[Rfam]
A member of the RNA family "Small nucleolar RNA Z122" from Taxus chinensis, 83 nucleotides long. The base pairs follow the family's consensus structure, which was predicted with PFOLD. The match comes from Rfam's covariance-model search (51 bits). Its family is annotated with RNA processing and nucleolus in the Gene Ontology. On this family, see Chen et al., Nucleic Acids Res 2003: "The high diversity of snoRNAs in plants: identification and comparative study of 120 snoRNA genes from Oryza sativa". The organism belongs to Taxus, within Eukaryota.
RNA sequence: UGGGGGAAAUGAAGAAAAUUCGCAAUGCUGAAUGCAUUCAGUGUGUGUUUCGAUGAAAAAUUGCACGUCAGUCAGAUCCCUUG
Numbered sequence: 001u002g003g004g005g006g007a008a009a010u011g012a013a014g015a016a017a018a019u020u021c022g023c024a025a026u027g028c029u030g031a032a033u034g035c036a037u038u039c040a041g042u043g044u045g046u047g048u049u050u051c052g053a054u055g056a057a058a059a060a061u062u063g064c065a066c067g068u069c070a071g072u073c074a075g076a077u078c079c080c081u082u083g
Stems, first nucleotide, its partner, number of pairs: 001083007